[Rfam]
RNA: 6S / SsrS RNA
RNA sequence: AAUUUCCUGUCUGGUGCGUGCUUUUGGUAAGAGAAUUUGUCCAAUACUAUAAAAUUGGGAGCUUAACUCUGGUUUUCUUUCGGGAUUACUAGGAAGGCACCCACGUAGUUCCAUCGGGGCUACAAUCUCUGCCUUUAGUUACGGCCAGAUGGGGUUUUA
Numbered sequence: 001a002a003u004u005u006c007c008u009g010u011c012u013g014g015u016g017c018g019u020g021c022u023u024u025u026g027g028u029a030a031g032a033g034a035a036u037u038u039g040u041c042c043a044a045u046a047c048u049a050u051a052a053a054a055u056u057g058g059g060a061g062c063u064u065a066a067c068u069c070u071g072g073u074u075u076u077c078u079u080u081c082g083g084g085a086u087u088a089c090u091a092g093g094a095a096g097g098c099a100c101c102c103a104c105g106u107a108g109u110u111c112c113a114u115c116g117g118g119g120c121u122a123c124a125a126u127c128u129c130u131g132c133c134u135u136u137a138g139u140u141a142c143g144g145c146c147a148g149a150u151g152g153g154g155u156u157u158u159a
Stems, first nucleotide, its partner, number of pairs: 002157001005154011017143003033127002036124001037122001039120004057102003061098004068092001070091004076085003